[Rfam]
RNA: T-box leader
Nucleotides: 228
Stems, first nucleotide, its partner, number of pairs: 007111002015106004026095006042080001044078001053077006114130005132144003163185009190225004201221005
Number, partner (000 for none) and nucleotide at each position: 001000a002000u003000u004000a005000c006000a007111g008110c009000u010000g011000u012000g013000a014000a015106a016105g017104g018103g019000a020000a021000u022000a023000g024000u025000a026095g027094a028093a029092a030091a031090a032000a033000a034000c035000a036000g037000g038000u039000a040000u041000c042080c043000a044078u045000a046000a047000c048000a049000g050000a051000g052000a053077g054076c055075c056074g057073g058072g059000g060000c061000a062000g063000a064000g065000c066000u067000g068000a069000a070000a071000a072058c073057c074056c075055g076054g077053c078044a079000g080042g081000g082000a083000u084000u085000u086000c087000c088000u089000g090031u091030u092029u093028u094027u095026c096000g097000a098000a099000c100000c101000c102000g103018c104017c105016c106015u107000c108000g109000a110008g111007c112000u113000g114130c115129c116128g117127g118126g119000g120000a121000a122000a123000u124000a125000a126118c127117c128116c129115g130114g131000c132144c133143g134142g135000u136000g137000c138000u139000u140000u141000u142134c143133c144132g145000a146000u147000a148000u149000c150000a151000a152000a153000g154000g155000g156000u157000a158000g159000a160000g161000a162000g163185a164184g165183a166182c167181g168180g169179a170178c171177g172000u173000u174000a175000g176000g177171u178170g179169u180168u181167c182166g183165u184164c185163u186000a187000a188000u189000a190225a191224a192223g193222g194000u195000g196000g197000u198000a199000c200000c201221g202220c203219g204218g205217a206000u207000a208000a209000g210000u211000g212000a213000c214000u215000c216000u217205u218204c219203c220202g221201u222193c223192c224191u225190u226000u227000u228000g